A member of the RNA family "Fluoride riboswitch aptamer (crcB RNA motif)" from Hydrogenoanaerobacterium saccharovorans, 72 nucleotides long.
Pairs were carried over by alignment from the consensus structure, which is taken from published work.
RNA sequence: GUAAAUAAAGGGAAUGAAGUUCUCCCGUGGUAAAACCAAAACCGCUUUUAAGCUGAUGACUUCUGUGAUUUU
Dot-bracket structure: .........[[[[..((((((.]]]].................(((....)))....)))))).........
The source organism's lineage runs through Bacteria, Bacillati, Bacillota, Oscillospiraceae and Hydrogenoanaerobacterium.